[Rfam]
The record is a 79-nucleotide RNA sequence from Desulfuromonas acetoxidans, which matches "c-di-GMP-I riboswitch aptamer" in Rfam. Taxonomically the source falls in Desulfuromonas acetoxidans (Bacteria, Desulfuromonadia, Desulfuromonadales, Desulfuromonas).
RNA sequence: CUCCGAUAAAGGCAAAACCGGAGUAAUCCGGUGACGCAAAGCCACGGGUCCUGUUUGACAGGAUCGCCGGGUUCCCGAA
Numbered sequence: 001c002u003c004c005g006a007u008a009a010a011g012g013c014a015a016a017a018c019c020g021g022a023g024u025a026a027u028c029c030g031g032u033g034a035c036g037c038a039a040a041g042c043c044a045c046g047g048g049u050c051c052u053g054u055u056u057g058a059c060a061g062g063a064u065c066g067c068c069g070g071g072u073u074c075c076c077g078a079a
Base pairs, nucleotide, nucleotide: 012037013036017032018031019030020029021028022027040073041072042071043070045069046068047067048064049063050062051061052060053059054058